[Rfam]
RNA sequence: ACUGGACUCGACGCGGUCGAGUGGCUCAUCCGGGCGCCUACCCCCCCGGCAAUU
Numbered sequence: 001a002c003u004g005g006a007c008u009c010g011a012c013g014c015g016g017u018c019g020a021g022u023g024g025c026u027c028a029u030c031c032g033g034g035c036g037c038c039u040a041c042c043c044c045c046c047c048g049g050c051a052a053u054u
Stems, first nucleotide, its partner, number of pairs: 006022006029049002032046003
sul1 RNA: a 54-nucleotide RNA sequence from Paracoccus methylarcula. Lineage of the source: Bacteria > Pseudomonadota > Alphaproteobacteria > Paracoccaceae > Paracoccus. Rfam 15.1 lists 519 matches to the family in 480 species.